[Rfam]
RNA sequence: UGCGGUGACAUCAGGGCCCAGUCCCUGCUGUCAUGCCCCAGGUGACGUGCUGGGCUGACAGCAGGGCUGGCCGCUAACGUCACUGUC
Numbered sequence: 001u002g003c004g005g006u007g008a009c010a011u012c013a014g015g016g017c018c019c020a021g022u023c024c025c026u027g028c029u030g031u032c033a034u035g036c037c038c039c040a041g042g043u044g045a046c047g048u049g050c051u052g053g054g055c056u057g058a059c060a061g062c063a064g065g066g067c068u069g070g071c072c073g074c075u076a077a078c079g080u081c082a083c084u085g086u087c
Stems, first nucleotide, its partner, number of pairs: 002086008013075002015072004020068002023066011035055004040051002
The record is an 87-nucleotide RNA from Homo sapiens, which matches "mir-4526 microRNA precursor family" in Rfam. Rfam links the family to the GO terms RISC complex and miRNA-mediated post-transcriptional gene silencing.